[Rfam]
Nucleotides: 035
Base pairs, nucleotide, nucleotide: 001035002034003033004032006031008029010028012027013026014025015024016023017021
Number, partner (000 for none) and nucleotide at each position: 001035c002034u003033g004032u005000c006031u007000g008029u009000u010028g011000c012027u013026u014025c015024a016023a017021c018000a019000g020000u021017g022000u023016u024015u025014g026013g027012a028010c029008a030000a031006a032004a033003c034002g035001g